RNA sequence: GGGGACCUUCGGGGCCCUAUACCACUGGUCACCCGAUCCUCUGCCUUUGUGUGAUGGACGGGGGGCUGAACACAUAGGCCGCCGCCGACAGGGCAGGGGCCGCAGCUAAACGGAAGACAGAAA
Dot-bracket structure: ((((.(((...))))))).......(((((..........(((((((..........................................))))))).))))).....................
Numbered sequence: 001g002g003g004g005a006c007c008u009u010c011g012g013g014g015c016c017c018u019a020u021a022c023c024a025c026u027g028g029u030c031a032c033c034c035g036a037u038c039c040u041c042u043g044c045c046u047u048u049g050u051g052u053g054a055u056g057g058a059c060g061g062g063g064g065g066c067u068g069a070a071c072a073c074a075u076a077g078g079c080c081g082c083c084g085c086c087g088a089c090a091g092g093g094c095a096g097g098g099g100c101c102g103c104a105g106c107u108a109a110a111c112g113g114a115a116g117a118c119a120g121a122a123a
Stems, first nucleotide, its partner, number of pairs: 001018004006014003026102005041096007